[Rfam]
Small nucleolar RNA snoR53Y: a 77-nucleotide RNA sequence from Zostera marina. A search with the family's covariance model found it, with a score of 55 bits. A reference for the family is Brown et al. (2001), "Multiple snoRNA gene clusters from Arabidopsis", RNA. NCBI's taxonomy places the organism under Eukaryota, Tracheophyta, Euphyllophyta, Mesangiospermae, Zostera. It is annotated as a C/D-box small nucleolar RNA. The family's consensus secondary structure was predicted with WAR. Rfam links the family to the GO terms RNA processing and nucleolus. The family has 7 seed sequences and 513 matches in Rfam 15.1.

RNA sequence: AAUCCCUGUGAUGAUCAAUACCAUGCUAAUCCUGAAAUUCUUCAUGAUUAAAUUCAUAAUUAUUUCUUGAGGGAUUU
Numbered sequence: 001a002a003u004c005c006c007u008g009u010g011a012u013g014a015u016c017a018a019u020a021c022c023a024u025g026c027u028a029a030u031c032c033u034g035a036a037a038u039u040c041u042u043c044a045u046g047a048u049u050a051a052a053u054u055c056a057u058a059a060u061u062a063u064u065u066c067u068u069g070a071g072g073g074a075u076u077u
Stems, first nucleotide, its partner, number of pairs: 001076005